[Rfam]
Nucleotides: 175
Base pairs, nucleotide, nucleotide: 006170007169008168009167010166011165016079017078018077019076020075021074022073024071030064031063032062033061034060035059036058083113084112085111086110087109088108089107090106091105093103114140115139116138117137120135121134122133123132124131142160143159144158145157146156148154
Number, partner (000 for none) and nucleotide at each position: 001000a002000g003000g004000a005000a006170c007169a008168g009167a010166a011165g012000a013000g014000g015000a016079g017078c018077g019076u020075u021074a022073a023000c024071u025000a026000g027000g028000u029000a030064g031063u032062a033061a034060g035059u036058g037000a038000g039000a040000g041000g042000a043000u044000g045000c046000c047000a048000a049000u050000c051000c052000g053000a054000u055000g056000a057000c058036c059035a060034c061033u062032u063031a064030u065000g066000a067000u068000g069000g070000a071024g072000a073022u074021u075020a076019g077018c078017g079016c080000c081000g082000a083113g084112g085111u086110a087109u088108c089107a090106g091105u092000u093103u094000g095000u096000u097000u098000g099000g100000c101000a102000a103093a104000c105091a106090u107089u108088g109087a110086u111085a112084u113083c114140g115139g116138u117137c118000g119000a120135u121134u122133a123132g124131g125000c126000u127000g128000a129000a130000u131124c132123c133122u134121a135120a136000c137117g138116a139115u140114u141000g142160u143159c144158a145157c146156c147000u148154a149000u150000u151000u152000u153000u154148u155000u156146g157145g158144u159143g160142g161000a162000g163000a164000g165011c166010u167009u168008c169007u170006g171000g172000u173000g174000a175000u